[Rfam]
Nucleotides: 084
Base pairs, nucleotide, nucleotide: 025061026060027059028058029057030056031055032054034052035051
Number, partner (000 for none) and nucleotide at each position: 001000a002000a003000a004000u005000g006000a007000a008000g009000c010000a011000c012000u013000a014000a015000a016000a017000a018000g019000u020000g021000a022000a023000a024000a025061g026060c027059c028058u029057u030056g031055g032054u033000a034052g035051a036000g037000a038000u039000c040000u041000u042000u043000g044000a045000c046000u047000c048000a049000a050000a051035u052034c053000a054032a055031c056030c057029a058028a059027g060026g061025c062000a063000a064000g065000a066000a067000a068000a069000a070000u071000a072000a073000a074000a075000a076000c077000a078000u079000u080000u081000a082000u083000a084000a